[Rfam]
Source information
A member of the RNA family "mir-290 microRNA precursor family" from Orycteropus afer, 70 nucleotides long. Rfam links the family to the GO terms miRNA-mediated post-transcriptional gene silencing and RISC complex. The base pairs follow the family's consensus structure, which was predicted with RNAalifold. Taxonomically the source falls in Orycteropus afer (Eukaryota, Opisthokonta, Bilateria, Mammalia). A reference for the family is Houbaviy et al. (2003), "Embryonic stem cell-specific MicroRNAs", Dev Cell. A search with the family's covariance model found it, with a score of 57 bits.
RNA sequence: GGGGCACUCAAACUUGGGUGGCACUUUUCUGUUCCAUGUGCAAAAGUGCUGCCCUUGUUUUGAGUGUUGC
Numbered sequence: 001g002g003g004g005c006a007c008u009c010a011a012a013c014u015u016g017g018g019u020g021g022c023a024c025u026u027u028u029c030u031g032u033u034c035c036a037u038g039u040g041c042a043a044a045a046g047u048g049c050u051g052c053c054c055u056u057g058u059u060u061u062g063a064g065u066g067u068u069g070c
Stems, first nucleotide, its partner, number of pairs: 004067009016054010027043002